The family of this 108-nucleotide RNA from Amycolatopsis mediterranei is "mraW RNA". The organism belongs to Amycolatopsis mediterranei, within Bacteria.
RNA sequence: CCACCCGGAUGCCGUGAGGCCUCUGUCCGCUCAAUGGCCCUGGUGCACCUUCCCCGGUACCAGGUCAGCAGCGGGCGGACAGGGACCUGACGGCAUCCGCCAUAUUUC
Numbered sequence: 001c002c003a004c005c006c007g008g009a010u011g012c013c014g015u016g017a018g019g020c021c022u023c024u025g026u027c028c029g030c031u032c033a034a035u036g037g038c039c040c041u042g043g044u045g046c047a048c049c050u051u052c053c054c055c056g057g058u059a060c061c062a063g064g065u066c067a068g069c070a071g072c073g074g075g076c077g078g079a080c081a082g083g084g085a086c087c088u089g090a091c092g093g094c095a096u097c098c099g100c101c102a103u104a105u106u107u108c
Base pairs, nucleotide, nucleotide: 010095011094012093013092014091015090018087019086021084022083023082024081025080026079027078028077029076030075031074032073035068037066039064040063041062042061043060044059045058046057